[Rfam]
About this RNA: Rfam assigns this 176-nucleotide sequence from Oryza glumipatula to the family "MIR807 microRNA precursor family". The organism belongs to Oryza, within Eukaryota. Rfam 15.1 lists 1,514 matches to the family in 13 species. For this family Rfam cites "Rice embryogenic calli express a unique set of microRNAs, suggesting regulatory roles of microRNAs in plant post-embryogenic development" (Luo et al., FEBS Lett, 2006). The match comes from Rfam's covariance-model search (161 bits). Gene Ontology terms of the family: RISC complex and miRNA-mediated post-transcriptional gene silencing.
RNA sequence: AACUACACUAUCGAUGUAUAGAUUCACCCGCGAGAUGAUGUGACUGUUUCACCUAGGACGGGGACAUAGCAUCCUAUUACCAGCCAUCGCACGAAACUAAUAUGAUGCCACGUCCUCAUCCUAGAUGAAACAACCACGUCAUCUCACGGGUGAAUCCAUUCAUCGAUGGAACAACC
Numbered sequence: 001a002a003c004u005a006c007a008c009u010a011u012c013g014a015u016g017u018a019u020a021g022a023u024u025c026a027c028c029c030g031c032g033a034g035a036u037g038a039u040g041u042g043a044c045u046g047u048u049u050c051a052c053c054u055a056g057g058a059c060g061g062g063g064a065c066a067u068a069g070c071a072u073c074c075u076a077u078u079a080c081c082a083g084c085c086a087u088c089g090c091a092c093g094a095a096a097c098u099a100a101u102a103u104g105a106u107g108c109c110a111c112g113u114c115c116u117c118a119u120c121c122u123a124g125a126u127g128a129a130a131c132a133a134c135c136a137c138g139u140c141a142u143c144u145c146a147c148g149g150g151u152g153a154a155u156c157c158a159u160u161c162a163u164c165g166a167u168g169g170a171a172c173a174a175c176c
Stems, first nucleotide, its partner, number of pairs: 004173001009168007018159002021156008030147001032145002035142005041136002045132004051126001054123002057120002063114003069108005075102005087096001